[Rfam]
RNA sequence: UACUGUUUGUGAUGAUUACUUCAAAGCAAUGGGAAUCUCUCUGAAAGAGGCUGAGGAGGACUCUUGCACUGAAACAGUA
Numbered sequence: 001u002a003c004u005g006u007u008u009g010u011g012a013u014g015a016u017u018a019c020u021u022c023a024a025a026g027c028a029a030u031g032g033g034a035a036u037c038u039c040u041c042u043g044a045a046a047g048a049g050g051c052u053g054a055g056g057a058g059g060a061c062u063c064u065u066g067c068a069c070u071g072a073a074a075c076a077g078u079a
Stems, first nucleotide, its partner, number of pairs: 001079007
This 79-nucleotide sequence from Galbula dea belongs to the Rfam family "Small nucleolar RNA SNORD79".
Pairs were carried over by alignment from the consensus structure, which was predicted with PFOLD.
Rfam's curators write: snoRNA U79 or Z22 is found in intron 7 of the gas5 gene in humans and is also present in mice.